[Rfam]
RNA sequence: ACACUACAAACUGAUCACACAACAAUAAAAGUUGUGUAGUCGGGCGUAUAGCAGCAGGAAUACACCUGUGGGACAGUA
Numbered sequence: 001a002c003a004c005u006a007c008a009a010a011c012u013g014a015u016c017a018c019a020c021a022a023c024a025a026u027a028a029a030a031g032u033u034g035u036g037u038a039g040u041c042g043g044g045c046g047u048a049u050a051g052c053a054g055c056a057g058g059a060a061u062a063c064a065c066c067u068g069u070g071g072g073a074c075a076g077u078a
Stems, first nucleotide, its partner, number of pairs: 010077004016072001019040002022035005044052002054069005